[Rfam]
RNA sequence: AAUCCAGGAGAGAGAAGCAGGGUCUGAUCUGCAGCCUCUGUGGCAGUUGUUGAUUAGCUGUUGCCUCUCUCUUUCUCUCCA
Number, nucleotide and partner (000 for none) at each position: 001a000002a000003u000004c000005c000006a000007g000008g073009a072010g071011a070012g069013a068014g067015a066016a000017g064018c063019a062020g061021g000022g059023u000024c057025u056026g055027a054028u053029c052030u000031g000032c049033a048034g047035c046036c000037u000038c000039u000040g000041u000042g000043g000044c000045a000046g035047u034048u033049g032050u000051u000052g029053a028054u027055u026056a025057g024058c000059u022060g000061u020062u019063g018064c017065c000066u015067c014068u013069c012070u011071c010072u009073u008074u000075c000076u000077c000078u000079c000080c000081a000